[Rfam]
RNA sequence: AUAAAACGACGUUUCCAAGACGUCGGCAGCCGGUCUAAGCUUGGGAGGGCGAGGUUUUCGGCGCGGCGUUCCGCCGCUGCCCCGGACAAACGAUCUGGCGUGAAACCCGGACCGGAAGAUUUCAUGCAAGGCUUCGGCCUUGCAUUUUUUU
Numbered sequence: 001a002u003a004a005a006a007c008g009a010c011g012u013u014u015c016c017a018a019g020a021c022g023u024c025g026g027c028a029g030c031c032g033g034u035c036u037a038a039g040c041u042u043g044g045g046a047g048g049g050c051g052a053g054g055u056u057u058u059c060g061g062c063g064c065g066g067c068g069u070u071c072c073g074c075c076g077c078u079g080c081c082c083c084g085g086a087c088a089a090a091c092g093a094u095c096u097g098g099c100g101u102g103a104a105a106c107c108c109g110g111a112c113c114g115g116a117a118g119a120u121u122u123c124a125u126g127c128a129a130g131g132c133u134u135c136g137g138c139c140u141u142g143c144a145u146u147u148u149u150u151u
Stems, first nucleotide, its partner, number of pairs: 001149001007025006030115004039050001040048002053108002056105002060081003063077005082098005125144008
A member of the RNA family "Alphaproteobacterial sRNA ar9" from Aureimonas endophytica, 151 nucleotides long. For this family Rfam cites "A survey of sRNA families in alpha-proteobacteria" (del Val et al., RNA Biol, 2012). By type it is a small RNA. It scores 63 bits against the family's covariance model.